[Rfam]
RNA sequence: AAAGCAGGUCUGCAAUUGCAGCACUUCAUUGCAGUUGGAGUGCUGUCAUUAAUCCUGCUGAGAGCAAAUUUCUGCUGCAGAGCUCUUCCUCCUGAUCACUGUUUGUGAUAAGGAUGCUCUGUUAGCUGAACAUCA
Numbered sequence: 001a002a003a004g005c006a007g008g009u010c011u012g013c014a015a016u017u018g019c020a021g022c023a024c025u026u027c028a029u030u031g032c033a034g035u036u037g038g039a040g041u042g043c044u045g046u047c048a049u050u051a052a053u054c055c056u057g058c059u060g061a062g063a064g065c066a067a068a069u070u071u072c073u074g075c076u077g078c079a080g081a082g083c084u085c086u087u088c089c090u091c092c093u094g095a096u097c098a099c100u101g102u103u104u105g106u107g108a109u110a111a112g113g114a115u116g117c118u119c120u121g122u123u124a125g126c127u128g129a130a131c132a133u134c135a
Stems, first nucleotide, its partner, number of pairs: 003059006019045009071129002074126003079123002082120001089113002095109005
The family of this 135-nucleotide sequence from Labrus bergylta is "Small nucleolar RNA SNORA69".
The source organism's lineage runs through Eukaryota, Opisthokonta, Neoteleostei, Labriformes and Labrus.
Rfam's curators write: U69 is a member of the H/ACA class of small nucleolar RNAs (snoRNAs) which act as guides in the the modification of uridines to pseudouridines.